[Rfam]
RNA sequence: AGUAAGACCAAGCUCAGUGUGCCAUGUUUUAUCUGCAGCCAUGUCUGUGGGCUCUUGAGUUGGCCACCUGGGUGAGGCCCUGCU
Numbered sequence: 001a002g003u004a005a006g007a008c009c010a011a012g013c014u015c016a017g018u019g020u021g022c023c024a025u026g027u028u029u030u031a032u033c034u035g036c037a038g039c040c041a042u043g044u045c046u047g048u049g050g051g052c053u054c055u056u057g058a059g060u061u062g063g064c065c066a067c068c069u070g071g072g073u074g075a076g077g078c079c080c081u082g083c084u
Base pairs, nucleotide, nucleotide: 001084002083003082004081006079008077009076012073013072014071015070016069017068018066019065021064022063023062024061027058028057032051033050034049035048036047037046038045
Source information:
Shown here is an 84-nucleotide RNA from Gorilla gorilla, a member of the family "mir-571 microRNA precursor family". Gene Ontology terms of the family: miRNA-mediated post-transcriptional gene silencing and RISC complex. It scores 86 bits against the family's covariance model. The source organism's lineage runs through Eukaryota, Deuterostomia, Chordata, Catarrhini and Gorilla gorilla.